[Rfam]
The family of this 83-nucleotide RNA sequence from Lacticaseibacillus thailandensis is "SAM-III riboswitch aptamer (SMK box)".
The match comes from Rfam's covariance-model search (64 bits).
RNA sequence: GAUUGUUGCAAAGAAUUCCCGAUAGGGCCCACAGGCGUGGGUUUGCCUUGUAACCGAAAACUUUUAGGGGGAAAAUUUUUAUG
Numbered sequence: 001g002a003u004u005g006u007u008g009c010a011a012a013g014a015a016u017u018c019c020c021g022a023u024a025g026g027g028c029c030c031a032c033a034g035g036c037g038u039g040g041g042u043u044u045g046c047c048u049u050g051u052a053a054c055c056g057a058a059a060a061c062u063u064u065u066a067g068g069g070g071g072a073a074a075a076u077u078u079u080u081a082u083g
Base pairs, nucleotide, nucleotide: 016073017072018071019070020069024048025047026046028041029040030039031038032037054068055067